[Rfam]
RNA sequence: GGAGAGUUGCCGGAGUGGUCGAACGGGGCAGACUCGAAAUCUGUUGACCUGCUUUGCGGGUCCGGGGGUUCGAAUCCCUCACUCUCCG
Numbered sequence: 001g002g003a004g005a006g007u008u009g010c011c012g013g014a015g016u017g018g019u020c021g022a023a024c025g026g027g028g029c030a031g032a033c034u035c036g037a038a039a040u041c042u043g044u045u046g047a048c049c050u051g052c053u054u055u056g057c058g059g060g061u062c063c064g065g066g067g068g069u070u071c072g073a074a075u076c077c078c079u080c081a082c083u084c085u086c087c088g
Stems, first nucleotide, its partner, number of pairs: 001087007010026003028044005064080005